[Rfam]
mir-210 microRNA precursor family: a 97-nucleotide sequence from Coptotermes formosanus. A reference for the family is Cai et al. (2005), "Kaposi's sarcoma-associated herpesvirus expresses an array of viral microRNAs in latently infected cells", Proc Natl Acad Sci U S A.
RNA sequence: GAUUUCCUCACCGCAGCUGCUGAACACUGCACAAGAUUAGCGAUGAGAAACUCUUGUGCGUGUAAAAGCGGUUAUGGUUGGGACUCGUUCAUCUAUC
Numbered sequence: 001g002a003u004u005u006c007c008u009c010a011c012c013g014c015a016g017c018u019g020c021u022g023a024a025c026a027c028u029g030c031a032c033a034a035g036a037u038u039a040g041c042g043a044u045g046a047g048a049a050a051c052u053c054u055u056g057u058g059c060g061u062g063u064a065a066a067a068g069c070g071g072u073u074a075u076g077g078u079u080g081g082g083a084c085u086c087g088u089u090c091a092u093c094u095a096u097c
Base pairs, nucleotide, nucleotide: 005083006082007081008080010078011077012076015073016072017071018070019069020068021067025062026061028060029059030058031057032056033055035053036052